[Rfam]
RNA sequence: CUCUUAUCAAGAGAGGUGGAGGGGCUGGCCCGAUGAAACCUCGGCAACCGUCACGACAACCCAUUCGGUUGAGUGAAAUGGUGCCAAUUCCUGCGAGACUGCAAAGUCUUGACAGAUGAGAG
Numbered sequence: 001c002u003c004u005u006a007u008c009a010a011g012a013g014a015g016g017u018g019g020a021g022g023g024g025c026u027g028g029c030c031c032g033a034u035g036a037a038a039c040c041u042c043g044g045c046a047a048c049c050g051u052c053a054c055g056a057c058a059a060c061c062c063a064u065u066c067g068g069u070u071g072a073g074u075g076a077a078a079u080g081g082u083g084c085c086a087a088u089u090c091c092u093g094c095g096a097g098a099c100u101g102c103a104a105a106g107u108c109u110u111g112a113c114a115g116a117u118g119a120g121a122g
Base pairs, nucleotide, nucleotide: 001122002121003120004119005118006117007116008115013042014041015040016039017038021031022030023029025093027091028090043085044084045083046082048081049080051076052075053074089114094111095110096109097108098107099106

The family of this 122-nucleotide RNA from Tumebacillus flagellatus is "SAM riboswitch aptamer (S box leader)".
Taxonomically the source falls in Tumebacillus (Bacteria, Bacillati, Bacilli, Caryophanales).